Bacteroidales small SRP: a 107-nucleotide RNA sequence from Porphyromonas macacae. By type it is a non-coding RNA gene.

[Rfam]
RNA sequence: UGCACCCGGGUAAGUCCUAUACGGUCAGCUCCCAUUGAUUCCCCCAGGGCUUGAUCGCAGCAAGGGUAUUUGGUCGUAGCGACGCGAUAUGGUAAGCUUACCCAUCU
Numbered sequence: 001u002g003c004a005c006c007c008g009g010g011u012a013a014g015u016c017c018u019a020u021a022c023g024g025u026c027a028g029c030u031c032c033c034a035u036u037g038a039u040u041c042c043c044c045c046a047g048g049g050c051u052u053g054a055u056c057g058c059a060g061c062a063a064g065g066g067u068a069u070u071u072g073g074u075c076g077u078a079g080c081g082a083c084g085c086g087a088u089a090u091g092g093u094a095a096g097c098u099u100a101c102c103c104a105u106c107u
Stems, first nucleotide, its partner, number of pairs: 008103008017092005022086002024083002
The base pairs follow the family's consensus structure, which is taken from published work. Its family is annotated with SRP-dependent cotranslational protein targeting to membrane, signal sequence recognition and signal recognition particle, plasma membrane targeting in the Gene Ontology.